[Rfam]
RNA sequence: AGCCAAUGAUGUUAGAUAUUUUCCGUACCAUAUGAGAGAUCUACUCGUUGAUGAAUCUCUAAAAAAUUUCUGAGGUUG
Dot-bracket structure: ((((.....................................................................)))).
Numbered sequence: 001a002g003c004c005a006a007u008g009a010u011g012u013u014a015g016a017u018a019u020u021u022u023c024c025g026u027a028c029c030a031u032a033u034g035a036g037a038g039a040u041c042u043a044c045u046c047g048u049u050g051a052u053g054a055a056u057c058u059c060u061a062a063a064a065a066a067u068u069u070c071u072g073a074g075g076u077u078g
Stems, first nucleotide, its partner, number of pairs: 001077004